Shown here is a 54-nucleotide sequence from Salmo trutta, a member of the family "UnaL2 LINE 3' element". The organism belongs to Salmo, within Eukaryota. Rfam 15.1 lists 493,311 matches to the family in 99 species. Pairs were carried over by alignment from the consensus structure, which is taken from published work.
RNA sequence: GCAGUCCCAAUUUGUAAGUCGCUCUGGAUAAGAGCGUCUGCUAAAUGACGUAAA
Numbered sequence: 001g002c003a004g005u006c007c008c009a010a011u012u013u014g015u016a017a018g019u020c021g022c023u024c025u026g027g028a029u030a031a032g033a034g035c036g037u038c039u040g041c042u043a044a045a046u047g048a049c050g051u052a053a054a
Stems, first nucleotide, its partner, number of pairs: 013043001014041003020036006